[Rfam]
RNA sequence: GGAGGUGUGUGUCUUCUGUUUGUGAUGGCACGUAACUGGACAUUGAUCGCUUUAAACCGUUCUUAGUGUUUGCAGAUCUGCUCAGUGGCAUCCGUCACACUCUAAUAGCUCCUUGGCAGAUUAGGCAUGGAUCAUGGGCGUGGACUCCCGCUGCACGGCGACGGGUCGGACGCACGGUUCUGUCACCAUUUCCACUGGUGACCGAGGCCACGCACUGCUCCAGGUCUGCCGCCUUUCAAAAUUUCAUAGUUAAGUAAAUUCAAGUAGCUUAGCUUCGGAUUUCCGUACUUAGAUUGUUCAGAACACUUCCACAGACGUGGCACUGCCGAGCAGUAUGCCCAUCUUUUUG
Numbered sequence: 001g002g003a004g005g006u007g008u009g010u011g012u013c014u015u016c017u018g019u020u021u022g023u024g025a026u027g028g029c030a031c032g033u034a035a036c037u038g039g040a041c042a043u044u045g046a047u048c049g050c051u052u053u054a055a056a057c058c059g060u061u062c063u064u065a066g067u068g069u070u071u072g073c074a075g076a077u078c079u080g081c082u083c084a085g086u087g088g089c090a091u092c093c094g095u096c097a098c099a100c101u102c103u104a105a106u107a108g109c110u111c112c113u114u115g116g117c118a119g120a121u122u123a124g125g126c127a128u129g130g131a132u133c134a135u136g137g138g139c140g141u142g143g144a145c146u147c148c149c150g151c152u153g154c155a156c157g158g159c160g161a162c163g164g165g166u167c168g169g170a171c172g173c174a175c176g177g178u179u180c181u182g183u184c185a186c187c188a189u190u191u192c193c194a195c196u197g198g199u200g201a202c203c204g205a206g207g208c209c210a211c212g213c214a215c216u217g218c219u220c221c222a223g224g225u226c227u228g229c230c231g232c233c234u235u236u237c238a239a240a241a242u243u244u245c246a247u248a249g250u251u252a253a254g255u256a257a258a259u260u261c262a263a264g265u266a267g268c269u270u271a272g273c274u275u276c277g278g279a280u281u282u283c284c285g286u287a288c289u290u291a292g293a294u295u296g297u298u299c300a301g302a303a304c305a306c307u308u309c310c311a312c313a314g315a316c317g318u319g320g321c322a323c324u325g326c327c328g329a330g331c332a333g334u335a336u337g338c339c340c341a342u343c344u345u346u347u348u349g
Base pairs, nucleotide, nucleotide: 001310002309003308004307005306006305007304008303022098023097024096025095026094036085037084038083041080042079045078046077047076048075049073050072319339320338321337322334323333324332325331326330
About this RNA: A member of the RNA family "Arthropod 7SK RNA" from Hermetia illucens, 349 nucleotides long. The family has 19 seed sequences and 229 matches in Rfam 15.1. NCBI's taxonomy places the organism under Eukaryota, Arthropoda, Insecta, Stratiomyomorpha, Hermetia. A reference for the family is Gruber et al. (2008), "Arthropod 7SK RNA", Mol Biol Evol. A search with the family's covariance model found it, with a score of 190 bits.